[Rfam]
RNA sequence: CUCUUAUCCAGAGAGGUGGAGGGGCUGGCCCUAUGAUACCUCAGCAACCAUCAGAUCGUCCUUGAUCUGAAAAGGUGCUAAUUCCUGCAGGAUUGAUUUCCUGAAAGAUAAGAG
Numbered sequence: 001c002u003c004u005u006a007u008c009c010a011g012a013g014a015g016g017u018g019g020a021g022g023g024g025c026u027g028g029c030c031c032u033a034u035g036a037u038a039c040c041u042c043a044g045c046a047a048c049c050a051u052c053a054g055a056u057c058g059u060c061c062u063u064g065a066u067c068u069g070a071a072a073a074g075g076u077g078c079u080a081a082u083u084c085c086u087g088c089a090g091g092a093u094u095g096a097u098u099u100c101c102u103g104a105a106a107g108a109u110a111a112g113a114g
Base pairs, nucleotide, nucleotide: 001114002113003112004111005110006109007108008107013042014041015040016039017038021031022030023029025087027085028084043079044078045077046076048075049074051070052069053068054067055066056065083106088103089102090101091100092099